[Rfam]
RNA sequence: UUAUGUCCAUUGCCUUUUUUCUGUUGUACUACUGACCAAUCAGAAGAGCAGUGCAAUAUUAAAAGGGCAUUGGCUUAA
Numbered sequence: 001u002u003a004u005g006u007c008c009a010u011u012g013c014c015u016u017u018u019u020u021c022u023g024u025u026g027u028a029c030u031a032c033u034g035a036c037c038a039a040u041c042a043g044a045a046g047a048g049c050a051g052u053g054c055a056a057u058a059u060u061a062a063a064a065g066g067g068c069a070u071u072g073g074c075u076u077a078a
Stems, first nucleotide, its partner, number of pairs: 001078003007073003012068008022058009
This 78-nucleotide RNA from Triplophysa tibetana belongs to the Rfam family "mir-130 microRNA precursor family". Rfam links the family to the GO terms RISC complex and miRNA-mediated post-transcriptional gene silencing. The family's consensus secondary structure was predicted with PFOLD. A reference for the family is Lagos-Quintana et al. (2002), "Identification of tissue-specific microRNAs from mouse", Curr Biol. A search with the family's covariance model found it, with a score of 44 bits. The family has 9 seed sequences and 2,580 matches in Rfam 15.1. Lineage of the source: Eukaryota > Vertebrata > Euteleostomi > Nemacheilidae > Triplophysa.